SAH (S-adenosyl-L-homocysteine) riboswitch aptamer: an 81-nucleotide RNA sequence from Actinomadura coerulea. The organism belongs to Actinomadura, within Bacteria. The match comes from Rfam's covariance-model search (41 bits).
RNA sequence: CGGGCCGAGAGGCGCUGCAACGGGCGAGAGCCCGCCACGCUCGGCCCGCGACACCUGAUUCCGCAAGGGCGCCUCCCAGAU
Numbered sequence: 001c002g003g004g005c006c007g008a009g010a011g012g013c014g015c016u017g018c019a020a021c022g023g024g025c026g027a028g029a030g031c032c033c034g035c036c037a038c039g040c041u042c043g044g045c046c047c048g049c050g051a052c053a054c055c056u057g058a059u060u061c062c063g064c065a066a067g068g069g070c071g072c073c074u075c076c077c078a079g080a081u
Stems, first nucleotide, its partner, number of pairs: 002047007021034005
Dot-bracket structure: .(((((((............(((((....)))))......)))))))..................................